Shown here is a 392-nucleotide RNA from Pseudomonas sp. BAY1663, a member of the family "Pseudomonas sRNA CrcZ". The source organism's lineage runs through Bacteria, Pseudomonadati, Pseudomonadota, Gammaproteobacteria and Pseudomonas. The family's consensus secondary structure was predicted with WAR. Rfam links the family to the GO term carbon catabolite repression of transcription.
RNA sequence: ACAACAAAAACAAGAAAGCUGAACCCCAUAACAAGAACAACACGUAGCGGCUCCGACACAAUAAAAACAAGCAUGUGGAGGCGUAGCAAACUGAUUCUUUUGGAGAGGAAUUGCCCGACAGGUCUCCUGUCGACCGGGCCGAGAACGACAAAACUGCCUCGAGGCAGCGCCAGAACCGGUUGAGCCCGCAAGGGCAGUGGCAACAUCAGCGACCAAAAUAAUCCGUUUGUUCUUUGAGUCCCGAAUGGGACCGCUUUUCGGACGCUCGUCCGACCGGGCCGCCAAUCAGAACAACAAGCCCGUCAGCAGAAAAAGAACAAAGCAAUAUCUCUUGGAGGGGGAGCCGCAAGGCUCCCCCUUUCUUAAUUCUGGUGCAUGCUCUUCAGGCUUCA
Numbered sequence: 001a002c003a004a005c006a007a008a009a010a011c012a013a014g015a016a017a018g019c020u021g022a023a024c025c026c027c028a029u030a031a032c033a034a035g036a037a038c039a040a041c042a043c044g045u046a047g048c049g050g051c052u053c054c055g056a057c058a059c060a061a062u063a064a065a066a067a068c069a070a071g072c073a074u075g076u077g078g079a080g081g082c083g084u085a086g087c088a089a090a091c092u093g094a095u096u097c098u099u100u101u102g103g104a105g106a107g108g109a110a111u112u113g114c115c116c117g118a119c120a121g122g123u124c125u126c127c128u129g130u131c132g133a134c135c136g137g138g139c140c141g142a143g144a145a146c147g148a149c150a151a152a153a154c155u156g157c158c159u160c161g162a163g164g165c166a167g168c169g170c171c172a173g174a175a176c177c178g179g180u181u182g183a184g185c186c187c188g189c190a191a192g193g194g195c196a197g198u199g200g201c202a203a204c205a206u207c208a209g210c211g212a213c214c215a216a217a218a219u220a221a222u223c224c225g226u227u228u229g230u231u232c233u234u235u236g237a238g239u240c241c242c243g244a245a246u247g248g249g250a251c252c253g254c255u256u257u258u259c260g261g262a263c264g265c266u267c268g269u270c271c272g273a274c275c276g277g278g279c280c281g282c283c284a285a286u287c288a289g290a291a292c293a294a295c296a297a298g299c300c301c302g303u304c305a306g307c308a309g310a311a312a313a314a315g316a317a318c319a320a321a322g323c324a325a326u327a328u329c330u331c332u333u334g335g336a337g338g339g340g341g342a343g344c345c346g347c348a349a350g351g352c353u354c355c356c357c358c359u360u361u362c363u364u365a366a367u368u369c370u371g372g373u374g375c376a377u378g379c380u381c382u383u384c385a386g387g388c389u390u391c392a
Stems, first nucleotide, its partner, number of pairs: 048083002051080004098218005112211003131182007154167005236251001239250004273373003276301004322364001336361001337358008
A reference for the family is Livny et al. (2006), "Identification of 17 Pseudomonas aeruginosa sRNAs and prediction of sRNA-encoding genes in 10 diverse pathogens using the bioinformatic tool sRNAPredict2", Nucleic Acids Res.